[Rfam]
RNA sequence: GAUGAUAUGAUGACCCUUUCCCCAGAUGAUCGACAAUGAACAUUCUGAGCUAUGUGAUUUCUCAUUUGAGAAAACCAAGCCAGAACUCUGAUUCUC
Numbered sequence: 001g002a003u004g005a006u007a008u009g010a011u012g013a014c015c016c017u018u019u020c021c022c023c024a025g026a027u028g029a030u031c032g033a034c035a036a037u038g039a040a041c042a043u044u045c046u047g048a049g050c051u052a053u054g055u056g057a058u059u060u061c062u063c064a065u066u067u068g069a070g071a072a073a074a075c076c077a078a079g080c081c082a083g084a085a086c087u088c089u090g091a092u093u094c095u096c
Base pairs, nucleotide, nucleotide: 001096002095004093005092